[Rfam]
RNA sequence: CCAAUAUGGUCAUCCAUUGAGGUUACUCAUGGCUCUGUCCAAGUGGUGUAUAUGGGAGCAUAGCCCUAAGUGCAGUGAUAUACAAUCCCUUCCACAGUGUUGAAGAGCAAGCCUGUCUCUGGUUCUAGAGCUGAUGAGAACAGCAUUCUAUAUAUUUUUAUAACUUCUCAGUCUCUAGACAAUUACUGAGGAGAAACCGUGCAGGUUACAACU
Numbered sequence: 001c002c003a004a005u006a007u008g009g010u011c012a013u014c015c016a017u018u019g020a021g022g023u024u025a026c027u028c029a030u031g032g033c034u035c036u037g038u039c040c041a042a043g044u045g046g047u048g049u050a051u052a053u054g055g056g057a058g059c060a061u062a063g064c065c066c067u068a069a070g071u072g073c074a075g076u077g078a079u080a081u082a083c084a085a086u087c088c089c090u091u092c093c094a095c096a097g098u099g100u101u102g103a104a105g106a107g108c109a110a111g112c113c114u115g116u117c118u119c120u121g122g123u124u125c126u127a128g129a130g131c132u133g134a135u136g137a138g139a140a141c142a143g144c145a146u147u148c149u150a151u152a153u154a155u156u157u158u159u160a161u162a163a164c165u166u167c168u169c170a171g172u173c174u175c176u177a178g179a180c181a182a183u184u185a186c187u188g189a190g191g192a193g194a195a196a197c198c199g200u201g202c203a204g205g206u207u208a209c210a211a212c213u
Base pairs, nucleotide, nucleotide: 002102003101004100005099006098007097008040009039011037012036014032015031016030018029019028020027021026043095044094045093046092054089055088056087057086058083060081061080062079063076064075147205148204149203151201152200153199164193165192166191167190168189169188171180172179173178